Rfam assigns this 64-nucleotide RNA sequence from Leptobacterium flavescens to the family "S15-Flavobacteria ribosomal protein leader". It scores 78 bits against the family's covariance model. Its Rfam clan is "Ribosomal Protein S15 Leader clan". Taxonomically the source falls in Leptobacterium (Bacteria, Pseudomonadati, Flavobacteriia, Flavobacteriaceae).
[Rfam]
RNA sequence: UAUAUUUGCGCCUUGAUAGAAAAACUAUCAGGUACAUAAAAAUCAUUUAAAUAAUAUUGGCAUG
Numbered sequence: 001u002a003u004a005u006u007u008g009c010g011c012c013u014u015g016a017u018a019g020a021a022a023a024a025c026u027a028u029c030a031g032g033u034a035c036a037u038a039a040a041a042a043u044c045a046u047u048u049a050a051a052u053a054a055u056a057u058u059g060g061c062a063u064g
Stems, first nucleotide, its partner, number of pairs: 014030006